[Rfam]
RNA: MIR480 microRNA precursor family
RNA sequence: GACACAGUAUGUGAUAAAAUCGCAAUUAAUAAUGGCAGAAAAGAUGACUGCUUGGAAUCUUUUGUAAUUAAGAGUCUGAUUAAAUGACAGAGCUACAAAAAGUAGUUCUUUCUUUUUUAUAACUUAUUUUCAU
Numbered sequence: 001g002a003c004a005c006a007g008u009a010u011g012u013g014a015u016a017a018a019a020u021c022g023c024a025a026u027u028a029a030u031a032a033u034g035g036c037a038g039a040a041a042a043g044a045u046g047a048c049u050g051c052u053u054g055g056a057a058u059c060u061u062u063u064g065u066a067a068u069u070a071a072g073a074g075u076c077u078g079a080u081u082a083a084a085u086g087a088c089a090g091a092g093c094u095a096c097a098a099a100a101a102g103u104a105g106u107u108c109u110u111u112c113u114u115u116u117u118u119a120u121a122a123c124u125u126a127u128u129u130u131c132a133u
Stems, first nucleotide, its partner, number of pairs: 006129002008126002012122001014120002018116002024111002028106001030104002